The family of this 109-nucleotide sequence from Oceanobacillus limi is "PyrR binding site". This family represents the PyrR binding site and terminator structure.

[Rfam]
RNA sequence: AAGACCUUUAACGUAAAUCCAGAGAGGUUUACAAGGUCGUAUAGACUACGUGUACUCAAUCACUACACGUAUACCUCUUUGCGACCAAAAGCAAAGGGGUAUUUUUUUA
Numbered sequence: 001a002a003g004a005c006c007u008u009u010a011a012c013g014u015a016a017a018u019c020c021a022g023a024g025a026g027g028u029u030u031a032c033a034a035g036g037u038c039g040u041a042u043a044g045a046c047u048a049c050g051u052g053u054a055c056u057c058a059a060u061c062a063c064u065a066c067a068c069g070u071a072u073a074c075c076u077c078u079u080u081g082c083g084a085c086c087a088a089a090a091g092c093a094a095a096g097g098g099g100u101a102u103u104u105u106u107u108u109a
Stems, first nucleotide, its partner, number of pairs: 003038006014031006039066003044057002047054002069104001071102012
The family's consensus secondary structure is taken from published work.
The match comes from Rfam's covariance-model search (63 bits).
Rfam classes the family as a cis-regulatory element.
Rfam 15.1 lists 1,498 matches to the family in 930 species.